The record is a 73-nucleotide RNA from Eucalyptus grandis, which matches "Plastid-clpP 5UTR RNA" in Rfam. The base pairs follow the family's consensus structure, which was predicted with LocARNA.
[Rfam]
RNA sequence: GAUCUUUUUUCAACAAAUAAGGGUUUAGAAGCAGAUCUAUUCUAUAUCCGAUAAGUACCAAUACGCAAUGGGG
Numbered sequence: 001g002a003u004c005u006u007u008u009u010u011c012a013a014c015a016a017a018u019a020a021g022g023g024u025u026u027a028g029a030a031g032c033a034g035a036u037c038u039a040u041u042c043u044a045u046a047u048c049c050g051a052u053a054a055g056u057a058c059c060a061a062u063a064c065g066c067a068a069u070g071g072g073g
Stems, first nucleotide, its partner, number of pairs: 003022002006019001008017003047072003055064003
On this family, see Richter et al., Plant Commun 2023: "Retrograde signaling in plants: A critical review focusing on the GUN pathway and beyond". Plastid clpP is a non-coding RNA (ncRNA) recognised in plastids. It was found in the prime untranslated region (5UTR) of a protease complex subunit (clpP) in plastids, suggesting a posible cis-regulatory function.